[Rfam]
RNA sequence: CUACCACAAGGUGAAGUGAGUGGGCCGCGGUUCUAUAAAGUCUGGAACUAGGCCCAGGAAAGUCCCCGGGCCCAUUACUGCAGAGAUGCAGACUCGGAGACGAGUGACUUCCGACGGCUUUCGGGGUUCCCUCAUCUUCGGAUGAAGGGCUGAGACGAGUGUGGAGCCCCAUGGGGAUCCCCAGCCCGGAGCCUCCUGGCCGACUAAACAGUUAUUCACUUGGUCUCGGACUAACUGAACGGGGCUUACAUCCUUGUGGUA
Numbered sequence: 001c002u003a004c005c006a007c008a009a010g011g012u013g014a015a016g017u018g019a020g021u022g023g024g025c026c027g028c029g030g031u032u033c034u035a036u037a038a039a040g041u042c043u044g045g046a047a048c049u050a051g052g053c054c055c056a057g058g059a060a061a062g063u064c065c066c067c068g069g070g071c072c073c074a075u076u077a078c079u080g081c082a083g084a085g086a087u088g089c090a091g092a093c094u095c096g097g098a099g100a101c102g103a104g105u106g107a108c109u110u111c112c113g114a115c116g117g118c119u120u121u122c123g124g125g126g127u128u129c130c131c132u133c134a135u136c137u138u139c140g141g142a143u144g145a146a147g148g149g150c151u152g153a154g155a156c157g158a159g160u161g162u163g164g165a166g167c168c169c170c171a172u173g174g175g176g177a178u179c180c181c182c183a184g185c186c187c188g189g190a191g192c193c194u195c196c197u198g199g200c201c202g203a204c205u206a207a208a209c210a211g212u213u214a215u216u217c218a219c220u221u222g223g224u225c226u227c228g229g230a231c232u233a234a235c236u237g238a239a240c241g242g243g244g245c246u247u248a249c250a251u252c253c254u255u256g257u258g259g260u261a
Base pairs, nucleotide, nucleotide: 002261003260004259005258006257007256008255009254010253011252014221015220016219017218018217019216022055023054024053025052029049030048031047032046033045034044035043060247061246062245064244065243066242067241079090080089081088082087092105093104094103095102096101116193117192118191123181124180125179126178127177135176136175137174138173147169148168149167150166157162223231224230225229